[Rfam]
RNA sequence: GCGAAUUGCCACGAUAUCGUUAUAAUGCCCGACCUUGAACCUGUCGCUGCAGCAAAAUCUGCGCGUAACAGGUGACAAAUCGGUGACAUCGGGUUAUUUUCU
Numbered sequence: 001g002c003g004a005a006u007u008g009c010c011a012c013g014a015u016a017u018c019g020u021u022a023u024a025a026u027g028c029c030c031g032a033c034c035u036u037g038a039a040c041c042u043g044u045c046g047c048u049g050c051a052g053c054a055a056a057a058u059c060u061g062c063g064c065g066u067a068a069c070a071g072g073u074g075a076c077a078a079a080u081c082g083g084u085g086a087c088a089u090c091g092g093g094u095u096a097u098u099u100u101c102u
Base pairs, nucleotide, nucleotide: 008028009027014023015022016021031095032094033093034092035091039084040083041082043080044075045074046073047072048071